[Rfam]
mir-29 microRNA precursor family: a 68-nucleotide RNA sequence from Leptotrombidium deliense.
Its family is annotated with gene silencing by miRNA and RISC complex in the Gene Ontology.
The source organism's lineage runs through Eukaryota, Arachnida, Acariformes, Trombiculidae and Leptotrombidium.
Rfam 15.1 lists 3,328 matches to the family in 787 species.
It scores 51 bits against the family's covariance model.
For this family Rfam cites "microRNAs: tiny regulators with great potential" (Ambros, Cell, 2001).
Rfam describes the family as follows. This family represents the microRNA (miRNA) precursors mir-29.
RNA sequence: GGUCACUGCGUUCAUUUGGUGCGUAGAGUACGUGUCCAAUGUCUAGCACCAUGUGAAUUCAGUUCAUC
Numbered sequence: 001g002g003u004c005a006c007u008g009c010g011u012u013c014a015u016u017u018g019g020u021g022c023g024u025a026g027a028g029u030a031c032g033u034g035u036c037c038a039a040u041g042u043c044u045a046g047c048a049c050c051a052u053g054u055g056a057a058u059u060c061a062g063u064u065c066a067u068c
Stems, first nucleotide, its partner, number of pairs: 001068003005063004010058005017051005024045004